This 84-nucleotide RNA sequence from Eucalyptus grandis belongs to the Rfam family "Small nucleolar RNA J33".
By type it is a C/D-box small nucleolar RNA.
The base pairs follow the family's consensus structure.
A search with the family's covariance model found it, with a score of 66 bits.
[Rfam]
RNA sequence: CCGUGAGAGGGAUGAUGUACUACUAUAGGGCUCUUGAGAUGCUUUCGGAUCUAGACUCUGCUCCAGAGACGGACAUAAGUACGG
Numbered sequence: 001c002c003g004u005g006a007g008a009g010g011g012a013u014g015a016u017g018u019a020c021u022a023c024u025a026u027a028g029g030g031c032u033c034u035u036g037a038g039a040u041g042c043u044u045u046c047g048g049a050u051c052u053a054g055a056c057u058c059u060g061c062u063c064c065a066g067a068g069a070c071g072g073a074c075a076u077a078a079g080u081a082c083g084g
Stems, first nucleotide, its partner, number of pairs: 001084005006076001